[Rfam]
RNA: Actinobacteria sRNA Ms_IGR-5
Organism: Streptomyces lacrimifluminis
RNA sequence: ACACAUGAUGGGAGGUGAUCGGGUACAUGAGUGAAACCCGGACGCGUGAGGUGGCUGCGGGCUAGCGGCUCGCCACCACGUUCAAUGCGGUGCCGGACCGGCGUGGGCGACUGACACGCAGCCGGCCGAAUCCAACGCAGUCACCCGACCCGCGAGCUCGCCGGUACGUCCGGCCGGCCCCUCGUCCAGAGGGACCGAGUUCGCGGGUCGUCUGCG
Numbered sequence: 001a002c003a004c005a006u007g008a009u010g011g012g013a014g015g016u017g018a019u020c021g022g023g024u025a026c027a028u029g030a031g032u033g034a035a036a037c038c039c040g041g042a043c044g045c046g047u048g049a050g051g052u053g054g055c056u057g058c059g060g061g062c063u064a065g066c067g068g069c070u071c072g073c074c075a076c077c078a079c080g081u082u083c084a085a086u087g088c089g090g091u092g093c094c095g096g097a098c099c100g101g102c103g104u105g106g107g108c109g110a111c112u113g114a115c116a117c118g119c120a121g122c123c124g125g126c127c128g129a130a131u132c133c134a135a136c137g138c139a140g141u142c143a144c145c146c147g148a149c150c151c152g153c154g155a156g157c158u159c160g161c162c163g164g165u166a167c168g169u170c171c172g173g174c175c176g177g178c179c180c181c182u183c184g185u186c187c188a189g190a191g192g193g194a195c196c197g198a199g200u201u202c203g204c205g206g207g208u209c210g211u212c213u214g215c216g
Stems, first nucleotide, its partner, number of pairs: 015058003019054001060127004065122002068119002074113001146210013160178006